[Rfam]
RNA sequence: GUUGUCGAAUUCGCAUCAAUCUAUAUGUAAUUGUGGUGGAUUGAAGUGGAACUUGAAUUAAAUUCCACCCCAAUCCACUCCAAUAGAUGUGGAUUGAGAUGAAUCCGAUA
Numbered sequence: 001g002u003u004g005u006c007g008a009a010u011u012c013g014c015a016u017c018a019a020u021c022u023a024u025a026u027g028u029a030a031u032u033g034u035g036g037u038g039g040a041u042u043g044a045a046g047u048g049g050a051a052c053u054u055g056a057a058u059u060a061a062a063u064u065c066c067a068c069c070c071c072a073a074u075c076c077a078c079u080c081c082a083a084u085a086g087a088u089g090u091g092g093a094u095u096g097a098g099a100u101g102a103a104u105c106c107g108a109u110a
Stems, first nucleotide, its partner, number of pairs: 004109004009104005016097011028085001030084004036078008046068003
The record is a 110-nucleotide RNA from Miscanthus lutarioriparius, which matches "MIR5565 microRNA precursor family" in Rfam. The family has 7 seed sequences and 3,346 matches in Rfam 15.1. NCBI's taxonomy places the organism under Eukaryota, Magnoliopsida, Poales, Andropogoneae, Miscanthus. Gene Ontology terms of the family: miRNA-mediated post-transcriptional gene silencing and RISC complex.